The family of this 59-nucleotide RNA is "S15-Flavobacteria ribosomal protein leader". For this family Rfam cites "Discovery of 20 novel ribosomal leader candidates in bacteria and archaea" (Eckert and Weinberg, BMC Microbiol, 2020). Rfam classes the family as a cis-regulatory leader. Its Rfam clan is "Ribosomal Protein S15 Leader clan". Pairs were carried over by alignment from the consensus structure, which is taken from published work.
RNA sequence: UAAAUUUGCACCCGUCCAAAGUGGACUACAUAAUAAUUAUUUACAAAAAUAUUGGCAUG
Numbered sequence: 001u002a003a004a005u006u007u008g009c010a011c012c013c014g015u016c017c018a019a020a021g022u023g024g025a026c027u028a029c030a031u032a033a034u035a036a037u038u039a040u041u042u043a044c045a046a047a048a049a050u051a052u053u054g055g056c057a058u059g
Base pairs, nucleotide, nucleotide: 014026015025016024017023018022